[Rfam]
RNA sequence: AACUGUUAGCAUGAACAAUCUGUUGUUCUUUUGGUUUGCACUGGGAUGCAAAAGAAAGAAAUCCCUGCGCUUUCCGUCUGCCUGUGUGGCAGCCCGGAUUGAAUAGGGGACUACCUCU
Numbered sequence: 001a002a003c004u005g006u007u008a009g010c011a012u013g014a015a016c017a018a019u020c021u022g023u024u025g026u027u028c029u030u031u032u033g034g035u036u037u038g039c040a041c042u043g044g045g046a047u048g049c050a051a052a053a054g055a056a057a058g059a060a061a062u063c064c065c066u067g068c069g070c071u072u073u074c075c076g077u078c079u080g081c082c083u084g085u086g087u088g089g090c091a092g093c094c095c096g097g098a099u100u101g102a103a104u105a106g107g108g109g110a111c112u113a114c115c116u117c118u
Base pairs, nucleotide, nucleotide: 004040005039007038008037009036010033013028014027015026016025017024018023062110063109064108065107066106070101073098074097075096076095078092079091080090081089082088
RNA: Small nucleolar RNA SNORA31
Organism: Molossus molossus